[Rfam]
RNA sequence: GGACGGCAACGCGACUGGCGCAGUCAAGGUGGAUCCGACCACCGGGAAGCGAACCGUCCGCACACCGCGCGCCUGGGUGUACGGG
Numbered sequence: 001g002g003a004c005g006g007c008a009a010c011g012c013g014a015c016u017g018g019c020g021c022a023g024u025c026a027a028g029g030u031g032g033a034u035c036c037g038a039c040c041a042c043c044g045g046g047a048a049g050c051g052a053a054c055c056g057u058c059c060g061c062a063c064a065c066c067g068c069g070c071g072c073c074u075g076g077g078u079g080u081a082c083g084g085g
Stems, first nucleotide, its partner, number of pairs: 003057004010051003015046002017073005029042004062080005
RNA: ZMP/ZTP riboswitch aptamer (pfl RNA motif)
Organism: Actinomadura rubteroloni